[Rfam]
RNA sequence: UCUGUGGAGUGUCGUAUCAAACUGCGGUAGUUUCGACGAAACAGGACACGAUGAAGCAGAAA
Dot-bracket structure: (((((...(((((........(((.....((....))....))))))))......)))))..
Shown here is a 62-nucleotide sequence, a member of the family "RAGATH-18 RNA".
The family's consensus secondary structure is taken from published work.